RNA sequence: GUGUGAGGACGACCUCCCCCAGCUCGGGAUAUCAUUCGGGACGGCCCGG
Numbered sequence: 001g002u003g004u005g006a007g008g009a010c011g012a013c014c015u016c017c018c019c020c021a022g023c024u025c026g027g028g029a030u031a032u033c034a035u036u037c038g039g040g041a042c043g044g045c046c047c048g049g
Stems, first nucleotide, its partner, number of pairs: 001020001003018001005016004036049005
A member of the RNA family "Guanidine-II riboswitch aptamer (mini-ykkC)" from Salipiger bermudensis, 49 nucleotides long. The source organism's lineage runs through Bacteria, Rhodobacterales, Roseobacteraceae, Salipiger and Salipiger bermudensis. The base pairs follow the family's consensus structure, which is taken from published work.